[Rfam]
RNA sequence: UCCUUAUUAAGAGCAGGGGAGGAAUCUGGUCCGUCGAUCCUGCAGCAACCAUCACUCAGAUUGUAUUUCAGUGAUAAGGUGCUAAGUCCAGCAAGCAUUUUAGCUUGGAAGAUAAGGG
Dot-bracket structure: ((((((((....(((((...(((..[[[[)))......)))))((((.((((((((.............))))))..))))))...(]]]](((((......)))))..)))))))))

The record is a 118-nucleotide RNA from Oceanobacillus zhaokaii, which matches "SAM riboswitch aptamer (S box leader)" in Rfam. Lineage of the source: Bacteria > Bacillota > Bacilli > Bacillaceae > Oceanobacillus.